U7 small nuclear RNA: a 61-nucleotide RNA from Saimiri boliviensis. Taxonomically the source falls in Saimiri boliviensis (Eukaryota, Metazoa, Teleostomi, Eutheria).
RNA sequence: UGGUGGGUUCCCGUUCUUUUAAAAUUUGUCUAGCAGGCUUUCCAGUGAAAACUGGAAAAAA
Number, nucleotide and partner (000 for none) at each position: 001u000002g000003g000004u000005g000006g000007g000008u000009u000010c000011c000012c000013g000014u000015u000016c000017u000018u000019u000020u000021a000022a000023a000024a000025u000026u000027u000028g000029u000030c000031u000032a000033g000034c000035a000036g000037g000038c000039u058040u057041u056042c055043c054044a053045g052046u051047g000048a000049a000050a000051a046052c045053u044054g043055g042056a041057a040058a039059a000060a000061a000